Source information: Rfam assigns this 139-nucleotide sequence from Listeria monocytogenes to the family "Ribosomal protein L20 leader". The literature on the family includes a 1994 paper in Prog Nucleic Acid Res Mol Biol by Zengel and Lindahl, "Diverse mechanisms for regulating ribosomal protein synthesis in Escherichia coli". Rfam's curators put it in the seed alignment. By type it is a cis-regulatory leader. Rfam links the family to the GO term regulation of gene expression.
RNA sequence: ACAAGAAAGAAGAAGCAACCCGCUUCUCGCCUCGUUAACACGAACGUUUUCAGGCAAAAAAUUCAAACUUUCGUCGCGUAAUUUACGCGAUUUUGAAUGUGCGGGAUUGCUGAAAAGCAGCCCGUUUUUUUUAUGGCCU
Number, nucleotide and partner (000 for none) at each position: 001a000002c000003a000004a000005g000006a000007a000008a000009g000010a000011a027012g026013a025014a024015g023016c022017a000018a000019c000020c000021c000022g016023c015024u014025u013026c012027u011028c000029g055030c054031c053032u000033c000034g000035u000036u000037a050038a049039c000040a047041c046042g000043a000044a000045c000046g041047u040048u000049u038050u037051c000052a000053g031054g030055c029056a000057a000058a000059a000060a000061a000062u000063u000064c000065a000066a000067a000068c000069u000070u000071u000072c000073g000074u000075c000076g000077c000078g000079u000080a000081a000082u000083u000084u000085a000086c000087g000088c000089g000090a000091u000092u000093u000094u000095g000096a000097a000098u000099g000100u000101g125102c124103g123104g122105g121106a000107u120108u119109g118110c117111u116112g000113a000114a000115a000116a111117g110118c109119a108120g107121c105122c104123c103124g102125u101126u000127u000128u000129u000130u000131u000132u000133a000134u000135g000136g000137c000138c000139u000